[Rfam]
The record is a 96-nucleotide RNA sequence from Oncorhynchus tshawytscha, which matches "Vault RNA" in Rfam. The organism belongs to Oncorhynchus, within Eukaryota.
RNA sequence: GCGCUGGGUGUAGCUCAGUGGUUACUUCGAAAACUUCUCUAUCAGAAAUGUUCUGUACCUCUGCAAGGGGUUCGAACACGGGCUGCCAGUGUUUUG
Numbered sequence: 001g002c003g004c005u006g007g008g009u010g011u012a013g014c015u016c017a018g019u020g021g022u023u024a025c026u027u028c029g030a031a032a033a034c035u036u037c038u039c040u041a042u043c044a045g046a047a048a049u050g051u052u053c054u055g056u057a058c059c060u061c062u063g064c065a066a067g068g069g070g071u072u073c074g075a076a077c078a079c080g081g082g083c084u085g086c087c088a089g090u091g092u093u094u095u096g
Base pairs, nucleotide, nucleotide: 002091003090004089005088006087007086013083014082015081016080018079019078020077026076027075028074029073030072
Annotation:
About the family: This family of RNAs are found as part of the enigmatic vault ribonucleoprotein complex. The complex consists of a major vault protein (MVP), two minor vault proteins (VPARP and TEP1), and several small untranslated RNA molecules. It has been suggested that the vault complex is involved in drug resistance. Rfam classes the family as a non-coding RNA gene.